[Rfam]
RNA: tRNA
RNA sequence: GGCACUGUAGCUCAGUUGGUAGAGCACAUGCUUAACACGAUGUACUCGAUCGCAUGUUGUCGUCGGUUCGAGCCCGGCCAGAGUCA
Numbered sequence: 001g002g003c004a005c006u007g008u009a010g011c012u013c014a015g016u017u018g019g020u021a022g023a024g025c026a027c028a029u030g031c032u033u034a035a036c037a038c039g040a041u042g043u044a045c046u047c048g049a050u051c052g053c054a055u056g057u058u059g060u061c062g063u064c065g066g067u068u069c070g071a072g073c074c075c076g077g078c079c080a081g082a083g084u085c086a
Stems, first nucleotide, its partner, number of pairs: 001085003005081003010025004027056005062078005